c-di-AMP riboswitch aptamer (ydaO/yuaA leader): a 190-nucleotide RNA from Paenibacillus lutrae. It scores 66 bits against the family's covariance model. Rfam's curators write: This family represents a conserved RNA structure found upstream of the ydaO and yuaA genes in Bacillus subtilis and related genes in other bacteria. The organism belongs to Paenibacillus, within Bacteria.
[Rfam]
RNA sequence: UUGUGUAUAGCGCCGAAACCUCUUCGUUUCUGUUUGGGAUUACAAGGAAGCCGGGGUGCGGGGGAUGAUUAUUAUCGGAUAGACGGGCAGCAGCCCUCAUAAUCCGAUUGGGGUGAACGCUGCCAGCAGCGUGGGCUACUUCUCAGCCCGAACCCGACAACUAACCUCGUAGGCAAUAUCGAGAAGGAGC
Numbered sequence: 001u002u003g004u005g006u007a008u009a010g011c012g013c014c015g016a017a018a019c020c021u022c023u024u025c026g027u028u029u030c031u032g033u034u035u036g037g038g039a040u041u042a043c044a045a046g047g048a049a050g051c052c053g054g055g056g057u058g059c060g061g062g063g064g065a066u067g068a069u070u071a072u073u074a075u076c077g078g079a080u081a082g083a084c085g086g087g088c089a090g091c092a093g094c095c096c097u098c099a100u101a102a103u104c105c106g107a108u109u110g111g112g113g114u115g116a117a118c119g120c121u122g123c124c125a126g127c128a129g130c131g132u133g134g135g136c137u138a139c140u141u142c143u144c145a146g147c148c149c150g151a152a153c154c155c156g157a158c159a160a161c162u163a164a165c166c167u168c169g170u171a172g173g174c175a176a177u178a179u180c181g182a183g184a185a186g187g188a189g190c
Base pairs, nucleotide, nucleotide: 012174013173014172018057019056020055021054022053058170059169060168061167062166063165111155112154113153119130120129121128122127133149134148135147136146